[Rfam]
RNA sequence: GGGUUACUCCUUGGCGCUUGCGCGCUUUGUUUGAUAAAGAUUCGCACCUAUAUCAAACCGGGUAACCUCACCUUUGGCAAGGCCAUACUGUCAGAUCAAGUCGGAACUACUACAAGUUAUUUUGCUGGGAGCGGAAGUUUCUUAAUGCCUAAAAUAUCAAACAUUUCUUUUUUCUUGGCUUCAAUUACUGUUG
Number, nucleotide and partner (000 for none) at each position: 001g068002g067003g066004u065005u064006a063007c062008u000009c061010c060011u000012u000013g000014g025015c024016g023017c022018u000019u000020g000021c000022g017023c016024g015025c014026u000027u000028u000029g058030u057031u056032u055033g054034a053035u052036a051037a000038a049039g048040a000041u000042u000043c000044g000045c000046a000047c000048c039049u038050a000051u036052a035053u034054c033055a032056a031057a030058c029059c000060g010061g009062g007063u006064a005065a004066c003067c002068u001069c000070a000071c000072c000073u000074u000075u156076g155077g000078c000079a000080a000081g149082g148083c000084c147085a146086u000087a000088c000089u000090g107091u106092c104093a000094g102095a101096u100097c000098a000099a000100g096101u095102c094103g000104g092105a000106a091107c090108u000109a142110c000111u000112a139113c000114a138115a000116g000117u000118u000119a000120u000121u000122u000123u000124g000125c000126u000127g000128g000129g000130a000131g000132c000133g000134g000135a000136a000137g000138u114139u112140u000141c000142u109143u000144a000145a000146u085147g084148c082149c081150u000151a000152a000153a000154a000155u076156a075157u000158c000159a000160a000161a000162c000163a000164u000165u000166u000167c000168u000169u000170u000171u000172u000173u000174c000175u000176u000177g000178g000179c000180u000181u000182c193183a192184a191185u000186u000187a000188c000189u000190g000191u184192u183193g182
Rfam assigns this 193-nucleotide sequence from Sulfuriferula sp. AH1 to the family "Proteobacterial sRNA psRNA2". It scores 127 bits against the family's covariance model. Pairs were carried over by alignment from the consensus structure. The literature on the family includes a 2010 paper in FEMS Microbiol Lett by Gvakharia et al., "Computational prediction and transcriptional analysis of sRNAs in Nitrosomonas europaea". NCBI's taxonomy places the organism under Bacteria, Pseudomonadati, Betaproteobacteria, Nitrosomonadales, Sulfuriferula.